The record is an 89-nucleotide RNA from Streptococcus dysgalactiae, which matches "Bacterial small signal recognition particle RNA" in Rfam. Rfam classes the family as a non-coding RNA gene. The source organism's lineage runs through Bacteria, Bacillati, Streptococcaceae, Streptococcus and Streptococcus dysgalactiae. Its family is annotated with signal recognition particle, plasma membrane targeting and SRP-dependent cotranslational protein targeting to membrane, signal sequence recognition in the Gene Ontology.
RNA sequence: AAAAGUGGAGCAACACUUGUGCGUGAAGUGGGUCAGGGGAGGAAUCCAGCAGCCCUAAGCGAUUGUCAGGUGUGUGCUCUUUUUUUGUU
Numbered sequence: 001a002a003a004a005g006u007g008g009a010g011c012a013a014c015a016c017u018u019g020u021g022c023g024u025g026a027a028g029u030g031g032g033u034c035a036g037g038g039g040a041g042g043a044a045u046c047c048a049g050c051a052g053c054c055c056u057a058a059g060c061g062a063u064u065g066u067c068a069g070g071u072g073u074g075u076g077c078u079c080u081u082u083u084u085u086u087g088u089u
Base pairs, nucleotide, nucleotide: 004083005082007080008079009078010077011074013073014072015071016070017069018068019064022061023060024059030055031054032053033052038047039046040045